[Rfam]
This 65-nucleotide RNA sequence from Ornithorhynchus anatinus belongs to the Rfam family "Selenocysteine insertion sequence 1". It is annotated as a cis-regulatory element. The base pairs follow the family's consensus structure, which is taken from published work. The literature on the family includes a 2002 paper in Biochimie by Lambert et al., "A survey of metazoan selenocysteine insertion sequences".
RNA sequence: CUCGCACUCAUGACGUCCACGGUGUCAACCGGCCCGCCGGGCACCGUGGACUGACGCCGGUCGAG
Numbered sequence: 001c002u003c004g005c006a007c008u009c010a011u012g013a014c015g016u017c018c019a020c021g022g023u024g025u026c027a028a029c030c031g032g033c034c035c036g037c038c039g040g041g042c043a044c045c046g047u048g049g050a051c052u053g054a055c056g057c058c059g060g061u062c063g064a065g
Stems, first nucleotide, its partner, number of pairs: 001065004015051010030039003